[Rfam]
RNA sequence: UUUAAAGUUUUCUAGGGUUCCGCUGAGUUAUUCAGCUUUACUCAGGCUGGUCCAAGAGAAAACAGCUACCGAUCGGUAGCCACCACGGAGGGAUAAAAGCCCGGGAGCA
Numbered sequence: 001u002u003u004a005a006a007g008u009u010u011u012c013u014a015g016g017g018u019u020c021c022g023c024u025g026a027g028u029u030a031u032u033c034a035g036c037u038u039u040a041c042u043c044a045g046g047c048u049g050g051u052c053c054a055a056g057a058g059a060a061a062a063c064a065g066c067u068a069c070c071g072a073u074c075g076g077u078a079g080c081c082a083c084c085a086c087g088g089a090g091g092g093a094u095a096a097a098a099g100c101c102c103g104g105g106a107g108c109a
Stems, first nucleotide, its partner, number of pairs: 007063006015053002020050002022047001023045006065080006084104001086107001090102003
Shown here is a 109-nucleotide RNA from Cryptobacterium sp. CAG:338, a member of the family "Guanidine-I riboswitch aptamer". Rfam describes the family as follows. This family represents a conserved RNA structure found upstream of the ykkC and yxkD genes in Bacillus subtilis and related genes in other bacteria. The match comes from Rfam's covariance-model search (82 bits). NCBI's taxonomy places the organism under Bacteria, Actinomycetota, Eggerthellales, Eggerthellaceae, Cryptobacterium.